The family of this 299-nucleotide RNA from Aquabacterium commune is "5' ureB small RNA". For this family Rfam cites "Helicobacter pylori 5'ureB-sRNA, a cis-encoded antisense small RNA, negatively regulates ureAB expression by transcription termination" (Wen et al., J Bacteriol, 2013). The organism belongs to Aquabacterium, within Bacteria.

RNA sequence: CCUCUUCGAUCUGCUGCGGGCAGAUGAAGUGGAUGUGCGUGUCGAUGCCGCCGGCCGUGACGAUCAUGCCUUCGGCCGCGAUGAUUUCCGUGCCCGGGCCGAUGACGAUGUCCACGCCGGGUUGCACGUCGGGGUUGCCCGCUUUGCCGAUGGCCACGAUGCGGCUGGCCUUGAUGCCGAUGUCGGCCUUGACGAUGCCCCAGUGGUCGAGGAUGAGGGCGUUGGUCAGCACGCAGUCGCAAGCGUCACCGGGGCCGGGGCCGUUGGGGCGUUGGCCCUGGCCCAUGCCGUCGCGGAUG
Numbered sequence: 001c002c003u004c005u006u007c008g009a010u011c012u013g014c015u016g017c018g019g020g021c022a023g024a025u026g027a028a029g030u031g032g033a034u035g036u037g038c039g040u041g042u043c044g045a046u047g048c049c050g051c052c053g054g055c056c057g058u059g060a061c062g063a064u065c066a067u068g069c070c071u072u073c074g075g076c077c078g079c080g081a082u083g084a085u086u087u088c089c090g091u092g093c094c095c096g097g098g099c100c101g102a103u104g105a106c107g108a109u110g111u112c113c114a115c116g117c118c119g120g121g122u123u124g125c126a127c128g129u130c131g132g133g134g135u136u137g138c139c140c141g142c143u144u145u146g147c148c149g150a151u152g153g154c155c156a157c158g159a160u161g162c163g164g165c166u167g168g169c170c171u172u173g174a175u176g177c178c179g180a181u182g183u184c185g186g187c188c189u190u191g192a193c194g195a196u197g198c199c200c201c202a203g204u205g206g207u208c209g210a211g212g213a214u215g216a217g218g219g220c221g222u223u224g225g226u227c228a229g230c231a232c233g234c235a236g237u238c239g240c241a242a243g244c245g246u247c248a249c250c251g252g253g254g255c256c257g258g259g260g261c262c263g264u265u266g267g268g269g270c271g272u273u274g275g276c277c278c279u280g281g282c283c284c285a286u287g288c289c290g291u292c293g294c295g296g297a298u299g
Stems, first nucleotide, its partner, number of pairs: 001299001003297001005295001007293003012158002016154002018076001022072002030053003034050002037048004057069003078147001081144001083142001090138003094134002097130003104125001107117001164282004170268007177260002186220005200209001223257003230252001233249001236247001238245001
Dot-bracket structure: (.(.(.(((..((..(((...((......(((.((.((((....)))))))))...(((.......))).))...).(..(.(......(((.((.(((....(..(.........).......)..)))..)).)))...).)..).....))..)).....((((..(((((((((.......(((((.........(........)......)))))..(((....(..(..(.(......).).)..)..))).)).)))))))..........))))........))).).).)